[Rfam]
RNA sequence: GGAGUCGUGGUUCGCAAUCCAUCCCACGUAAAAAAACUAGGAGGUC
Numbered sequence: 001g002g003a004g005u006c007g008u009g010g011u012u013c014g015c016a017a018u019c020c021a022u023c024c025c026a027c028g029u030a031a032a033a034a035a036a037c038u039a040g041g042a043g044g045u046c
Base pairs, nucleotide, nucleotide: 006028007027008026009025010024016038
PreQ1 (pre queuosine) riboswitch aptamer: a 46-nucleotide sequence from Lacticaseibacillus camelliae.
NCBI's taxonomy places the organism under Bacteria, Bacillati, Bacillota, Lactobacillaceae, Lacticaseibacillus camelliae.
The match comes from Rfam's covariance-model search (46 bits).
For this family Rfam cites "Identification of four genes necessary for biosynthesis of the modified nucleoside queuosine" (Reader et al., J Biol Chem, 2004).
Rfam links the family to the GO term queuosine biosynthetic process.
About the family: This family is a bacterial riboswitch that binds to the metabolite preQ1, an intermediate in the biosynthesis of the modified nucleoside queuosine from GTP. One example of this riboswitch is located in the leader of the Bacillus subtilis ykvJKLM (queCDEF) operon which encodes four genes necessary for queuosine production. PreQ1 binding to the riboswitch aptamer is thought to induce premature transcription termination within the leader to down-regulate expression of these genes.